The family of this 92-nucleotide sequence from Aurantimicrobium minutum is "Glycine riboswitch aptamer". Rfam describes the family as follows. This family represents the bacterial glycine riboswitch.

RNA sequence: UCGAUCAUUGCGGGAGAGUUCACCCUCGAGGUGAACACCGAAGGAGCAAUCCUCCCCGACAAUCUCUCAGGUACGCGUACCGCAGUGAACGG
Numbered sequence: 001u002c003g004a005u006c007a008u009u010g011c012g013g014g015a016g017a018g019u020u021c022a023c024c025c026u027c028g029a030g031g032u033g034a035a036c037a038c039c040g041a042a043g044g045a046g047c048a049a050u051c052c053u054c055c056c057c058g059a060c061a062a063u064c065u066c067u068c069a070g071g072u073a074c075g076c077g078u079a080c081c082g083c084a085g086u087g088a089a090c091g092g
Base pairs, nucleotide, nucleotide: 006087007086008085009084010083011082012081013080019035020034021033022032037072038071039070040068041067044066045065046064050059051058
The base pairs follow the family's consensus structure.